[Rfam]
Shown here is an 88-nucleotide sequence from Cochlearius cochlearius, a member of the family "mir-1426 microRNA precursor family". The family has 2 seed sequences and 326 matches in Rfam 15.1. Gene Ontology terms of the family: miRNA-mediated post-transcriptional gene silencing and RISC complex. A search with the family's covariance model found it, with a score of 79 bits. Pairs were carried over by alignment from the consensus structure, which was predicted with RNAalifold. NCBI's taxonomy places the organism under Eukaryota, Euteleostomi, Tetrapoda, Neoaves, Cochlearius.
RNA sequence: CAGGCUUGAUCCUCUUUCCUUAACUCAUGCCGCUGUGCCUUACCAUUUAUUUCACAAUUGUGUGAGUUGAGUACAGAGUGUCAGACCA
Numbered sequence: 001c002a003g004g005c006u007u008g009a010u011c012c013u014c015u016u017u018c019c020u021u022a023a024c025u026c027a028u029g030c031c032g033c034u035g036u037g038c039c040u041u042a043c044c045a046u047u048u049a050u051u052u053c054a055c056a057a058u059u060g061u062g063u064g065a066g067u068u069g070a071g072u073a074c075a076g077a078g079u080g081u082c083a084g085a086c087c088a
Stems, first nucleotide, its partner, number of pairs: 004086001006084005012078002019071010034056004